About this RNA
Shown here is a 68-nucleotide RNA from Drosophila melanogaster, a member of the family "Selenocysteine insertion sequence 1". Rfam describes the family as follows. The incorporation of selenocysteine into a protein sequence is directed by an in-frame UGA codon (usually a stop codon) within the coding region of the mRNA. Selenoprotein mRNAs contain a conserved secondary structure in the 3' UTR that is required for the distinction of UGA stop from UGA selenocysteine. Rfam classes the family as a cis-regulatory element.
RNA sequence: GUGGCGCUUAUGACGCAGUUGUCUUAAACUCGAACUCGAGCGGGCAAUUGCUGAUUACGAUUAACCAC
Numbered sequence: 001g002u003g004g005c006g007c008u009u010a011u012g013a014c015g016c017a018g019u020u021g022u023c024u025u026a027a028a029c030u031c032g033a034a035c036u037c038g039a040g041c042g043g044g045c046a047a048u049u050g051c052u053g054a055u056u057a058c059g060a061u062u063a064a065c066c067a068c
Stems, first nucleotide, its partner, number of pairs: 001068004015051010030039003